Shown here is a 133-nucleotide sequence from Dracunculus medinensis, a member of the family "Nematode snoRNA ceN88". It scores 43 bits against the family's covariance model. A reference for the family is Jia et al. (2007), "Systematic identification of non-coding RNA 2,2,7-trimethylguanosine cap structures in Caenorhabditis elegans", BMC Mol Biol. The organism belongs to Dracunculus, within Eukaryota.

RNA sequence: ACCCUCCGGUCUUGGCACUUCUUUGUCUUGUUCGAAGAAUGUGUAUGCUAAAGGAGGCAAAUUAGUCGGACUUCCUUCGGUACCAGCCAUAUUGUUGUUGCGGUUGGUAGUAUCCUCAUUGUUCGGCACAAAU
Numbered sequence: 001a002c003c004c005u006c007c008g009g010u011c012u013u014g015g016c017a018c019u020u021c022u023u024u025g026u027c028u029u030g031u032u033c034g035a036a037g038a039a040u041g042u043g044u045a046u047g048c049u050a051a052a053g054g055a056g057g058c059a060a061a062u063u064a065g066u067c068g069g070a071c072u073u074c075c076u077u078c079g080g081u082a083c084c085a086g087c088c089a090u091a092u093u094g095u096u097g098u099u100g101c102g103g104u105u106g107g108u109a110g111u112a113u114c115c116u117c118a119u120u121g122u123u124c125g126g127c128a129c130a131a132a133u
Stems, first nucleotide, its partner, number of pairs: 003057005010050001015044004020038006065127007079111001083107006